[Rfam]
RNA: mir-11 microRNA precursor family
RNA sequence: CCAUAAACAUAGAAGUCAGAAUGUGAACUGCGUCUGUUCUGGAACAGACGCAGUUCACAUUCUGACUUCUAUGUUUAUGG
Numbered sequence: 001c002c003a004u005a006a007a008c009a010u011a012g013a014a015g016u017c018a019g020a021a022u023g024u025g026a027a028c029u030g031c032g033u034c035u036g037u038u039c040u041g042g043a044a045c046a047g048a049c050g051c052a053g054u055u056c057a058c059a060u061u062c063u064g065a066c067u068u069c070u071a072u073g074u075u076u077a078u079g080g
Base pairs, nucleotide, nucleotide: 004077005076006075009072010071011070012069013068014067015066016065017064021060022059023058024057025056026055030051031050032049
Dot-bracket structure: ...(((..(((((((((...((((((...(((................)))...))))))...)))))))))..)))...